The family of this 125-nucleotide sequence from Artemisia annua is "Small nucleolar RNA SNORD14".
U14 small nucleolar RNA (U14 snoRNA) is required for early cleavages of eukaryotic precursor rRNAs. In yeasts, this molecule possess a stem-loop region (known as the Y-domain) which is essential for function.
For this family Rfam cites "An essential domain in Saccharomyces cerevisiae U14 snoRNA is absent in vertebrates, but conserved in other yeasts" (Samarsky et al., Nucleic Acids Res, 1996).
It scores 70 bits against the family's covariance model.

RNA sequence: UGUUGGUGAUGAUAAUCUUAAGGCUUGUUUCUCAGAAACAUUCGCAGUGGCCGACUAAGAGCUUUCGCCUUUCGCCGGGCUUGAGAGUUAAUGCUGCUUUGCUCCUUCCUUGGAUGUCUGAAACA
Number, nucleotide and partner (000 for none) at each position: 001u125002g124003u123004u122005g000006g000007u000008g000009a000010u000011g000012a000013u000014a000015a000016u000017c000018u000019u000020a000021a000022g000023g000024c000025u000026u000027g000028u000029u000030u000031c000032u000033c000034a000035g000036a000037a000038a000039c000040a000041u000042u000043c000044g000045c000046a000047g000048u000049g000050g000051c000052c000053g000054a000055c000056u000057a000058a000059g000060a000061g088062c087063u086064u085065u084066c083067g000068c000069c000070u000071u000072u000073c000074g000075c000076c000077g000078g000079g000080c000081u000082u000083g066084a065085g064086a063087g062088u061089u000090a000091a000092u000093g000094c000095u000096g000097c000098u000099u000100u000101g000102c000103u000104c000105c000106u000107u000108c000109c000110u000111u000112g000113g000114a000115u000116g000117u000118c000119u000120g000121a000122a004123a003124c002125a001